[Rfam]
RNA sequence: GAAGCGUGAACCAAGCGGCGGCGAGAGUCGCGUGAGACUUGGAGCUGGCCUCGGCAACGAGGCCAUGCA
Dot-bracket structure: ..........(((((..(((((....)))))......)))))...((((((((....))))))))....